This 139-nucleotide RNA from Vibrio navarrensis belongs to the Rfam family "Molybdenum/Tungsten riboswitch aptamer (Moco RNA motif)". A search with the family's covariance model found it, with a score of 105 bits.
RNA sequence: AGGGUGCCAUAACUCCGAGCUUAACUUGCUAAGUCGUGUUUUACGAUAAGCAGAUUAAGCCAGUGGCAAAAGGCCACAAGGGCGACAUUGGAAAUGAUCUCGCCUCCCGUAUUUGGAAAGGUGUUCCGUGGCGCAACAA
Numbered sequence: 001a002g003g004g005u006g007c008c009a010u011a012a013c014u015c016c017g018a019g020c021u022u023a024a025c026u027u028g029c030u031a032a033g034u035c036g037u038g039u040u041u042u043a044c045g046a047u048a049a050g051c052a053g054a055u056u057a058a059g060c061c062a063g064u065g066g067c068a069a070a071a072g073g074c075c076a077c078a079a080g081g082g083c084g085a086c087a088u089u090g091g092a093a094a095u096g097a098u099c100u101c102g103c104c105u106c107c108c109g110u111a112u113u114u115g116g117a118a119a120g121g122u123g124u125u126c127c128g129u130g131g132c133g134c135a136a137c138a139a
Base pairs, nucleotide, nucleotide: 004132011125012124013123015121016120019060020059021058022057023056024055026053027052028051029050033047034046035045036044037043038042063077064076065075066074067073080105081104082103083102084101085100087098088097089096090095106116107115

The source organism's lineage runs through Bacteria, Pseudomonadota, Gammaproteobacteria, Vibrionaceae and Vibrio. Gene Ontology terms of the family: molybdenum ion binding, tungstate binding and regulation of gene expression.